[Rfam]
This 115-nucleotide RNA from Nesterenkonia xinjiangensis belongs to the Rfam family "Glycine riboswitch aptamer". About the family: This family represents the bacterial glycine riboswitch. A search with the family's covariance model found it, with a score of 59 bits. Rfam links the family to the GO term glycine biosynthetic process. Pairs were carried over by alignment from the consensus structure.

RNA sequence: GCCCCCUGCAUGGGAGAGCCCGGAGCGCGUCGCCGACAGGCGGGUGCGAACACCGGCGCCGAAGGAGCAACAUCCUCCCCAGGAAUCUCUCAGGCACCCGUACCGUGCAGGGGUG
Numbered sequence: 001g002c003c004c005c006c007u008g009c010a011u012g013g014g015a016g017a018g019c020c021c022g023g024a025g026c027g028c029g030u031c032g033c034c035g036a037c038a039g040g041c042g043g044g045u046g047c048g049a050a051c052a053c054c055g056g057c058g059c060c061g062a063a064g065g066a067g068c069a070a071c072a073u074c075c076u077c078c079c080c081a082g083g084a085a086u087c088u089c090u091c092a093g094g095c096a097c098c099c100g101u102a103c104c105g106u107g108c109a110g111g112g113g114u115g
Base pairs, nucleotide, nucleotide: 006110007109008108009107010106011105012104013103020056021055022054023053058095059094060093061091062090065089066088067087071082